The family of this 151-nucleotide RNA sequence from Streptomyces somaliensis is "c-di-AMP riboswitch aptamer (ydaO/yuaA leader)". A search with the family's covariance model found it, with a score of 57 bits.
RNA sequence: ACUCACACAUCCGCGUCCGGCAGGAGCGGGGGAACCAGGUAAGCCGCCGAUCCGGUGUCCGGAACGGCUCGGGGUGAAGUCGCGGGCGACCGCGGCCGGGCAUCUCCCGCCCGAACCCGACAGCUCACCUCGCAGGCGCCGGAGAGGAACG
Numbered sequence: 001a002c003u004c005a006c007a008c009a010u011c012c013g014c015g016u017c018c019g020g021c022a023g024g025a026g027c028g029g030g031g032g033a034a035c036c037a038g039g040u041a042a043g044c045c046g047c048c049g050a051u052c053c054g055g056u057g058u059c060c061g062g063a064a065c066g067g068c069u070c071g072g073g074g075u076g077a078a079g080u081c082g083c084g085g086g087c088g089a090c091c092g093c094g095g096c097c098g099g100g101c102a103u104c105u106c107c108c109g110c111c112c113g114a115a116c117c118c119g120a121c122a123g124c125u126c127a128c129c130u131c132g133c134a135g136g137c138g139c140c141g142g143a144g145a146g147g148a149a150c151g
Base pairs, nucleotide, nucleotide: 003025004024026133027132028131029130030129031128036071072118073117074116080095081094082093083092098112099111100110101109